[Rfam]
RNA sequence: GCCGAGCCUUGUAACGUGGGCUUGUAACCUAAGUGGGAGCAACAAUGUGGUGGGAUGUUAGGCUAUUCCAGAUGGCUGGACUUUGGUUGCCAUUAGUAUGGCUUGCCCUGUCCAAGCACGGAGUUGAGUCACGUGGUUCAAAUGAAAGUAUGGACUGCUUGGCUCUUAGAGUGGGGUGGGCUGCGUAAGGCUGGUUUCAUAGAGCAACGAAUAGCUCUCGCUCUGUGCAGUGGAAGGAUAACGAGUCAGUGCUCUCCAAGUUCUAUAAAAACCCGAUGGACUCCUUAAUUAAACCACCACUUCU
Numbered sequence: 001g002c003c004g005a006g007c008c009u010u011g012u013a014a015c016g017u018g019g020g021c022u023u024g025u026a027a028c029c030u031a032a033g034u035g036g037g038a039g040c041a042a043c044a045a046u047g048u049g050g051u052g053g054g055a056u057g058u059u060a061g062g063c064u065a066u067u068c069c070a071g072a073u074g075g076c077u078g079g080a081c082u083u084u085g086g087u088u089g090c091c092a093u094u095a096g097u098a099u100g101g102c103u104u105g106c107c108c109u110g111u112c113c114a115a116g117c118a119c120g121g122a123g124u125u126g127a128g129u130c131a132c133g134u135g136g137u138u139c140a141a142a143u144g145a146a147a148g149u150a151u152g153g154a155c156u157g158c159u160u161g162g163c164u165c166u167u168a169g170a171g172u173g174g175g176g177u178g179g180g181c182u183g184c185g186u187a188a189g190g191c192u193g194g195u196u197u198c199a200u201a202g203a204g205c206a207a208c209g210a211a212u213a214g215c216u217c218u219c220g221c222u223c224u225g226u227g228c229a230g231u232g233g234a235a236g237g238a239u240a241a242c243g244a245g246u247c248a249g250u251g252c253u254c255u256c257c258a259a260g261u262u263c264u265a266u267a268a269a270a271a272c273c274c275g276a277u278g279g280a281c282u283c284c285u286u287a288a289u290u291a292a293a294c295c296a297c298c299a300c301u302u303c304u
Base pairs, nucleotide, nucleotide: 001040002039004023005022006021007020008019009018028037029036030035045302047300048299049298050297051296052295053294056291057290058288059287060286061284062283066280068279069278070277074273075272077270078263079262080261081260082259083258085256089252091251092250099248100247101246102245103244104243105242107237108236111234112233113232114231116228117227118226119225120224121223122222123221124220126165127164128163129162130161131160133158134157135156136155137154138153139152140151142149143148166171173218174217175216176215177214182211184209185208186207191202192201193200